[Rfam]
RNA: U4atac minor spliceosomal RNA
Organism: Folsomia candida
RNA sequence: ACCGACCUUGGUCAAGGGGACAGUGACGUUCAAUGAUCGUCUAGAGAGAGCGUUCGUGCUGACACCCUAACACAUUUAACCCCCCACCUGACCUCUGAGGACACGGUGGAAUUUUUGAAACC
Numbered sequence: 001a002c003c004g005a006c007c008u009u010g011g012u013c014a015a016g017g018g019g020a021c022a023g024u025g026a027c028g029u030u031c032a033a034u035g036a037u038c039g040u041c042u043a044g045a046g047a048g049a050g051c052g053u054u055c056g057u058g059c060u061g062a063c064a065c066c067c068u069a070a071c072a073c074a075u076u077u078a079a080c081c082c083c084c085c086a087c088c089u090g091a092c093c094u095c096u097g098a099g100g101a102c103a104c105g106g107u108g109g110a111a112u113u114u115u116u117g118a119a120a121c122c
Stems, first nucleotide, its partner, number of pairs: 006019004021058002025054007037045002084109005092100003